[Rfam]
RNA sequence: ACAACUCAAUAAUCAUACACUUGUAUAAUCGUGGGAAUAUGGCCCACAAGUUUCUACCAAGUUACCGUAAAUGACUUGACUACAAGUGAUCUUCAUAAUACG
Numbered sequence: 001a002c003a004a005c006u007c008a009a010u011a012a013u014c015a016u017a018c019a020c021u022u023g024u025a026u027a028a029u030c031g032u033g034g035g036a037a038u039a040u041g042g043c044c045c046a047c048a049a050g051u052u053u054c055u056a057c058c059a060a061g062u063u064a065c066c067g068u069a070a071a072u073g074a075c076u077u078g079a080c081u082a083c084a085a086g087u088g089a090u091c092u093u094c095a096u097a098a099u100a101c102g
Base pairs, nucleotide, nucleotide: 018088019087020086021085022084023083024082025081029049031047032046033045034044035043058078059077060076061075062074063073064072
The family of this 102-nucleotide RNA sequence from Piscibacillus halophilus is "Purine riboswitch aptamer". Gene Ontology term of the family: purine nucleobase biosynthetic process. The family's consensus secondary structure is taken from published work. For this family Rfam cites "Riboswitches Control Fundamental Biochemical Pathways in Bacillus subtilis and Other Bacteria" (Mandal et al., Cell, 2003).